[Rfam]
RNA sequence: AGCUUUUACAAGGUAUCAGCACUUUUCUUUCAUUAGAGGGAAGAGGGGAGGAAAGUACCAAACAGCGGCAGAGUUUUAAACUUUAAAUAGACAGGUCUGAGUGCCUGAACUUACUUUUUCAUUUUACUUCAUCUUCCAAGGAAUUCAAUCACUUGACGUGCCUACUUCACUUCUUUUAAGCGAAAGAGUAAGUUAAACAAC
Numbered sequence: 001a002g003c004u005u006u007u008a009c010a011a012g013g014u015a016u017c018a019g020c021a022c023u024u025u026u027c028u029u030u031c032a033u034u035a036g037a038g039g040g041a042a043g044a045g046g047g048g049a050g051g052a053a054a055g056u057a058c059c060a061a062a063c064a065g066c067g068g069c070a071g072a073g074u075u076u077u078a079a080a081c082u083u084u085a086a087a088u089a090g091a092c093a094g095g096u097c098u099g100a101g102u103g104c105c106u107g108a109a110c111u112u113a114c115u116u117u118u119u120c121a122u123u124u125u126a127c128u129u130c131a132u133c134u135u136c137c138a139a140g141g142a143a144u145u146c147a148a149u150c151a152c153u154u155g156a157c158g159u160g161c162c163u164a165c166u167u168c169a170c171u172u173c174u175u176u177u178a179a180g181c182g183a184a185a186g187a188g189u190a191a192g193u194u195a196a197a198c199a200a201c
Base pairs, nucleotide, nucleotide: 002020003019004018007015008014009013029143030142031141033139034138036136037135038134039133040130041129042128043127048123049122051120053119054118055117070098071097072096074094075093099114101112103110153196154195155194156193165186166185167184168182170180171179172178
Annotation:
Connexin-43 internal ribosome entry site (IRES): a 201-nucleotide RNA sequence from Orycteropus afer. Rfam's curators write: This family represents the connexin-43 internal ribosome entry site (IRES) which allows cap independent translation during conditions such as heat shock and stress. Rfam links the family to the GO term ribosome binding.